[Rfam]
RNA sequence: AGUAAGGGUAGAGGUGCGAAAACCAUCAGUACUUAUGUGGAAGAGAAUGAGCUCUUAAGAAACAUAAGGAAAGGGGAAUUUGCCGAAGUGGAAGGAUGCUCAUCAUCCUGAACCUGGUUCUGUUAUUUAAUAGAUGCAGAAUUGUCAUAUAGGAAACUAUAUGGAGAGCUAUCAAGCUG
Numbered sequence: 001a002g003u004a005a006g007g008g009u010a011g012a013g014g015u016g017c018g019a020a021a022a023c024c025a026u027c028a029g030u031a032c033u034u035a036u037g038u039g040g041a042a043g044a045g046a047a048u049g050a051g052c053u054c055u056u057a058a059g060a061a062a063c064a065u066a067a068g069g070a071a072a073g074g075g076g077a078a079u080u081u082g083c084c085g086a087a088g089u090g091g092a093a094g095g096a097u098g099c100u101c102a103u104c105a106u107c108c109u110g111a112a113c114c115u116g117g118u119u120c121u122g123u124u125a126u127u128u129a130a131u132a133g134a135u136g137c138a139g140a141a142u143u144g145u146c147a148u149a150u151a152g153g154a155a156a157c158u159a160u161a162u163g164g165a166g167a168g169c170u171a172u173c174a175a176g177c178u179g
Stems, first nucleotide, its partner, number of pairs: 007173005016083005023076002032068007087115002093109006116143007124136004145164007
Rfam assigns this 179-nucleotide RNA from Virgibacillus indicus to the family "Lysine riboswitch aptamer".